[Rfam]
RNA sequence: GGGGUUAUAGCUCAGUUGGUAGAGCACCUCAAUGGCAUUGAGGGGGCCAGCGGUUCGAGUCCGCUUAGCUCCA
Numbered sequence: 001g002g003g004g005u006u007a008u009a010g011c012u013c014a015g016u017u018g019g020u021a022g023a024g025c026a027c028c029u030c031a032a033u034g035g036c037a038u039u040g041a042g043g044g045g046g047c048c049a050g051c052g053g054u055u056c057g058a059g060u061c062c063g064c065u066u067a068g069c070u071c072c073a
Base pairs, nucleotide, nucleotide: 001072002071003070004069005068006067007066010025011024012023013022027043028042029041030040031039049065050064051063052062053061
tRNA: a 73-nucleotide RNA from Okeania sp. KiyG1. By type it is a transfer RNA.